RNA sequence: AUAGUUCUUAUUGCAGCUGCUGGCCACUGCACAAGAUUAGAUUAGAUGACUCUUGUGCGUGUGACAGCGGCUAUUGUGAGAUACUAAAAUCAACAG
Numbered sequence: 001a002u003a004g005u006u007c008u009u010a011u012u013g014c015a016g017c018u019g020c021u022g023g024c025c026a027c028u029g030c031a032c033a034a035g036a037u038u039a040g041a042u043u044a045g046a047u048g049a050c051u052c053u054u055g056u057g058c059g060u061g062u063g064a065c066a067g068c069g070g071c072u073a074u075u076g077u078g079a080g081a082u083a084c085u086a087a088a089a090u091c092a093a094c095a096g
Stems, first nucleotide, its partner, number of pairs: 006081006015072008024063001025061002028059006035052002
A member of the RNA family "mir-210 microRNA precursor family" from Lucilia cuprina, 96 nucleotides long.